The family of this 69-nucleotide RNA sequence from Megalops atlanticus is "mir-8/mir-141/mir-200 microRNA precursor family". Lineage of the source: Eukaryota > Neopterygii > Elopocephala > Elopomorpha > Megalops. It scores 60 bits against the family's covariance model. For this family Rfam cites "Identification of novel genes coding for small expressed RNAs" (Lagos-Quintana et al., Science, 2001).

RNA sequence: GUGCUCAUCUUACCCGACAGUGCUGGACUGUACAUCCGUGUUCUAACACUGUCUGGUAACGAUGUUCGC
Numbered sequence: 001g002u003g004c005u006c007a008u009c010u011u012a013c014c015c016g017a018c019a020g021u022g023c024u025g026g027a028c029u030g031u032a033c034a035u036c037c038g039u040g041u042u043c044u045a046a047c048a049c050u051g052u053c054u055g056g057u058a059a060c061g062a063u064g065u066u067c068g069c
Base pairs, nucleotide, nucleotide: 002068003067006064007063008062009061010059011058012057013056014055016053017052018051019050020049021048022047024045025044026043027042